[Rfam]
RNA: Ribosomal protein L13 leader
Organism: Listeria fleischmannii
RNA sequence: GGUAUUGUUUACCCCACAAUAUGCCCCGGAAGGUUGUUGUGUUGAAUAAAACAAUAG
Numbered sequence: 001g002g003u004a005u006u007g008u009u010u011a012c013c014c015c016a017c018a019a020u021a022u023g024c025c026c027c028g029g030a031a032g033g034u035u036g037u038u039g040u041g042u043u044g045a046a047u048a049a050a051a052c053a054a055u056a057g
Base pairs, nucleotide, nucleotide: 006053007052008051009050010049015041016040017039018038019037020036021035